Purine riboswitch aptamer: a 98-nucleotide sequence from Fusobacterium necrogenes. The base pairs follow the family's consensus structure, which is taken from published work. Taxonomically the source falls in Fusobacterium (Bacteria, Fusobacteriota, Fusobacteriales, Fusobacteriaceae).

[Rfam]
RNA sequence: UAUAUAAUAAAAAAUAUAUCUCAUAUAUACCUCUAAUAUGGAGAGGAGUUUCUACGGUUAACCUUAAAUUAACUGCUAUGAGUUAAAGGAAAUGAUGU
Numbered sequence: 001u002a003u004a005u006a007a008u009a010a011a012a013a014a015u016a017u018a019u020c021u022c023a024u025a026u027a028u029a030c031c032u033c034u035a036a037u038a039u040g041g042a043g044a045g046g047a048g049u050u051u052c053u054a055c056g057g058u059u060a061a062c063c064u065u066a067a068a069u070u071a072a073c074u075g076c077u078a079u080g081a082g083u084u085a086a087a088g089g090a091a092a093u094g095a096u097g098u
Stems, first nucleotide, its partner, number of pairs: 018084001020082006030046005056074006